[Rfam]
RNA sequence: UUUGUACAUUAGGACACAGCAGAAGCACUCUUGGCAUGGACUGGCAGAUUCCAAUGAAUCUGCAAAUUCUGCU
Numbered sequence: 001u002u003u004g005u006a007c008a009u010u011a012g013g014a015c016a017c018a019g020c021a022g023a024a025g026c027a028c029u030c031u032u033g034g035c036a037u038g039g040a041c042u043g044g045c046a047g048a049u050u051c052c053a054a055u056g057a058a059u060c061u062g063c064a065a066a067u068u069c070u071g072c073u
Stems, first nucleotide, its partner, number of pairs: 013041001014037001018073007025035002045062007
The record is a 73-nucleotide sequence from Alligator mississippiensis, which matches "Mammalian CPEB3 ribozyme" in Rfam. Pairs were carried over by alignment from the consensus structure, which is taken from published work.